[Rfam]
RNA: MIR6217 microRNA precursor family
RNA sequence: UGGCUACAAAAUAACAUAUUUUGUAGCCACUUUGAGUUACGAUAAUAAUUAUGUUAAUUUACGAGAUUAUAGUAACUUUUUACUAAGUGGUUUGCUAUAACGUUACGAUAAAUAUCUUCAUGUGUUAUAGUAACCCAACUAUCGUAAAUAUGUGUACAUAUUAUCGUAAAUUAGUAUAUAAAAUUAUCGUAAAUGGAAGUGGCUACAUAAUAACUUAUUUUGUAGAUA
Numbered sequence: 001u002g003g004c005u006a007c008a009a010a011a012u013a014a015c016a017u018a019u020u021u022u023g024u025a026g027c028c029a030c031u032u033u034g035a036g037u038u039a040c041g042a043u044a045a046u047a048a049u050u051a052u053g054u055u056a057a058u059u060u061a062c063g064a065g066a067u068u069a070u071a072g073u074a075a076c077u078u079u080u081u082a083c084u085a086a087g088u089g090g091u092u093u094g095c096u097a098u099a100a101c102g103u104u105a106c107g108a109u110a111a112a113u114a115u116c117u118u119c120a121u122g123u124g125u126u127a128u129a130g131u132a133a134c135c136c137a138a139c140u141a142u143c144g145u146a147a148a149u150a151u152g153u154g155u156a157c158a159u160a161u162u163a164u165c166g167u168a169a170a171u172u173a174g175u176a177u178a179u180a181a182a183a184u185u186a187u188c189g190u191a192a193a194u195g196g197a198a199g200u201g202g203c204u205a206c207a208u209a210a211u212a213a214c215u216u217a218u219u220u221u222g223u224a225g226a227u228a
Base pairs, nucleotide, nucleotide: 001228002227004225005224006223007222008221009220010219011218012217013216014215017212018211019210020209022207023206024205025204026203027202028201029200030199031198032197033196037192038191039190040189041188042187043186044185045184046183050178051177052176053175054174055173056172057171058170059169060168061167062166065165066164067163069161070160071159072157073156074155079148080147081146082145083144087142088141089140090139091138092137093132094131095130096129097128098127099126100125101124102123103122107117